[Rfam]
RNA sequence: GAGUAACGCUAGGGGUGCUCUCCGCUGAGAGGAUUUCGAUCCAACCCUUAGAACCUGAUCUGGAUAAUACCGGCGAAGGGAAGCGGCUAAAGUUGAUG
Numbered sequence: 001g002a003g004u005a006a007c008g009c010u011a012g013g014g015g016u017g018c019u020c021u022c023c024g025c026u027g028a029g030a031g032g033a034u035u036u037c038g039a040u041c042c043a044a045c046c047c048u049u050a051g052a053a054c055c056u057g058a059u060c061u062g063g064a065u066a067a068u069a070c071c072g073g074c075g076a077a078g079g080g081a082a083g084c085g086g087c088u089a090a091a092g093u094u095g096a097u098g
Base pairs, nucleotide, nucleotide: 007085008084009083010082011048012047013046014045017025018024032041033040034039054079055078056077060073061072062071063070
TPP riboswitch aptamer (THI element): a 98-nucleotide RNA sequence from Desulforhopalus singaporensis.
Gene Ontology term of the family: thiamine pyrophosphate binding.
Taxonomically the source falls in Desulforhopalus (Bacteria, Thermodesulfobacteriota, Desulfobulbia, Desulfobulbales).
It scores 70 bits against the family's covariance model.